[Rfam]
RNA sequence: UAGGAACGAGGUGGGAAAGGUUCCCCACGCGCUGCAAAUAACGCAGUCAUCAGAGAUGCUAGAUACGCCGACUAGCCGUUUCUG
Numbered sequence: 001u002a003g004g005a006a007c008g009a010g011g012u013g014g015g016a017a018a019g020g021u022u023c024c025c026c027a028c029g030c031g032c033u034g035c036a037a038a039u040a041a042c043g044c045a046g047u048c049a050u051c052a053g054a055g056a057u058g059c060u061a062g063a064u065a066c067g068c069c070g071a072c073u074a075g076c077c078g079u080u081u082c083u084g
Base pairs, nucleotide, nucleotide: 001084002083003082004081005080006079007078008077011028012027013026014025015024019069020068021067030053031047032046033045034044058076059075060074061073062072
RNA: skipping-rope RNA
Organism: Salibacterium salarium